This 185-nucleotide sequence from Modestobacter italicus belongs to the Rfam family "c-di-AMP riboswitch aptamer (ydaO/yuaA leader)". It scores 59 bits against the family's covariance model. Rfam links the family to the GO terms regulation of gene expression and cyclic-di-AMP binding.
[Rfam]
RNA sequence: GCUCGGACACCGCCGAACCACCGGACCGCUCUGCGGCGAGGUGGACCGGGGACCCACCGCAGUCCUGGGGUGAGUUCUCACGUGCGCCGGGAACGGGGCACACGCGCCGACGACGGCGCGCCGAGACAGGGCGUUCCUUCGCCCGAACCCGUCAGCUGACUCGGUAGGCGGUCGAGUGGAAGAAA
Numbered sequence: 001g002c003u004c005g006g007a008c009a010c011c012g013c014c015g016a017a018c019c020a021c022c023g024g025a026c027c028g029c030u031c032u033g034c035g036g037c038g039a040g041g042u043g044g045a046c047c048g049g050g051g052a053c054c055c056a057c058c059g060c061a062g063u064c065c066u067g068g069g070g071u072g073a074g075u076u077c078u079c080a081c082g083u084g085c086g087c088c089g090g091g092a093a094c095g096g097g098g099c100a101c102a103c104g105c106g107c108c109g110a111c112g113a114c115g116g117c118g119c120g121c122c123g124a125g126a127c128a129g130g131g132c133g134u135u136c137c138u139u140c141g142c143c144c145g146a147a148c149c150c151g152u153c154a155g156c157u158g159a160c161u162c163g164g165u166a167g168g169c170g171g172u173c174g175a176g177u178g179g180a181a182g183a184a185a
Stems, first nucleotide, its partner, number of pairs: 011170004018044005045165006055067002068150003076126004129144004